[Rfam]
RNA: 6S / SsrS RNA
RNA sequence: AUAUUCCUGCCAUAUUAGUAUAACGAGUACAUAUUGACCCAACAAUUUUUUAAAAGGGAAUCUGACUCUUUUUAUAAAAUGAAGCUUUUUAGGGAAACCUAUUAAAGAACGUGAAGUAAAAAGGAGAUACCCACCUGUUUAAUACAGGUUCAACUAUUACUCGUGCUACGGUAUGGUGGGAUUUCU
Numbered sequence: 001a002u003a004u005u006c007c008u009g010c011c012a013u014a015u016u017a018g019u020a021u022a023a024c025g026a027g028u029a030c031a032u033a034u035u036g037a038c039c040c041a042a043c044a045a046u047u048u049u050u051u052a053a054a055a056g057g058g059a060a061u062c063u064g065a066c067u068c069u070u071u072u073u074a075u076a077a078a079a080u081g082a083a084g085c086u087u088u089u090u091a092g093g094g095a096a097a098c099c100u101a102u103u104a105a106a107g108a109a110c111g112u113g114a115a116g117u118a119a120a121a122a123g124g125a126g127a128u129a130c131c132c133a134c135c136u137g138u139u140u141a142a143u144a145c146a147g148g149u150u151c152a153a154c155u156a157u158u159a160c161u162c163g164u165g166c167u168a169c170g171g172u173a174u175g176g177u178g179g180g181a182u183u184u185c186u
Stems, first nucleotide, its partner, number of pairs: 003183001005181011018169002031157003035152003039148002056132003060128004067122001070121006081110001085107004